[Rfam]
RNA sequence: GCUGCCAGGCGAGGCGCUUCCCUCCAGGUCGCUCUGGCAGCCUUCGUCGUUGAGCGAGCCCUGCUUGGCCACUCGGGGCGAGAGCAGCUGGGCCAGCUCGGCCAGC
Numbered sequence: 001g002c003u004g005c006c007a008g009g010c011g012a013g014g015c016g017c018u019u020c021c022c023u024c025c026a027g028g029u030c031g032c033u034c035u036g037g038c039a040g041c042c043u044u045c046g047u048c049g050u051u052g053a054g055c056g057a058g059c060c061c062u063g064c065u066u067g068g069c070c071a072c073u074c075g076g077g078g079c080g081a082g083a084g085c086a087g088c089u090g091g092g093c094c095a096g097c098u099c100g101g102c103c104a105g106c
Base pairs, nucleotide, nucleotide: 001106002105003104004103009094012089013088016085017084018083021080022078023077024076027073028072029071031069032068033067036065037064038063039062040061043058044057045056046055047054
Rfam assigns this 106-nucleotide RNA sequence from Naja naja to the family "mir-2968 microRNA precursor family".
The organism belongs to Naja, within Eukaryota.
A reference for the family is Gunaratne et al. (2011), "Song exposure regulates known and novel microRNAs in the zebra finch auditory forebrain", BMC Genomics.